[Rfam]
Notes
The record is a 135-nucleotide RNA from Aneurinibacillus danicus, which matches "PyrR binding site" in Rfam. A search with the family's covariance model found it, with a score of 63 bits.
RNA sequence: GCAACCUUUAAAUCAGUCCUGUGAGGCUGGCAAGGAAAUCGGAUGAGUUCGGUAGAAGUAUAGGUGAAAUUUGUCUCACCUUGUCUUUUGCUGAACCCAAAAAGCUUUCUGCCCCUCGCAGAAAGCUUUUUUUGU
Numbered sequence: 001g002c003a004a005c006c007u008u009u010a011a012a013u014c015a016g017u018c019c020u021g022u023g024a025g026g027c028u029g030g031c032a033a034g035g036a037a038a039u040c041g042g043a044u045g046a047g048u049u050c051g052g053u054a055g056a057a058g059u060a061u062a063g064g065u066g067a068a069a070u071u072u073g074u075c076u077c078a079c080c081u082u083g084u085c086u087u088u089u090g091c092u093g094a095a096c097c098c099a100a101a102a103a104g105c106u107u108u109c110u111g112c113c114c115c116u117c118g119c120a121g122a123a124a125g126c127u128u129u130u131u132u133u134g135u
Base pairs, nucleotide, nucleotide: 005035006034007033008032013030014029015028016027017026018025056087057086058085062081063080064079065078066077067076069074099131100130101129102128103127104126105125106124107123108122109121110120111119112118